RNA sequence: CAAGGAGAGGUUCUAGCGAAUACCCUCUAUAAAAAACUAAGGACAA
Numbered sequence: 001c002a003a004g005g006a007g008a009g010g011u012u013c014u015a016g017c018g019a020a021u022a023c024c025c026u027c028u029a030u031a032a033a034a035a036a037c038u039a040a041g042g043a044c045a046a
Base pairs, nucleotide, nucleotide: 006028007027008026009025010024016038
Rfam assigns this 46-nucleotide sequence from Bacillus sp. THAF10 to the family "PreQ1 (pre queuosine) riboswitch aptamer". For this family Rfam cites "Identification of four genes necessary for biosynthesis of the modified nucleoside queuosine" (Reader et al., J Biol Chem, 2004). Gene Ontology term of the family: queuosine biosynthetic process. NCBI's taxonomy places the organism under Bacteria, Bacillati, Bacillota, Bacillaceae, Bacillus.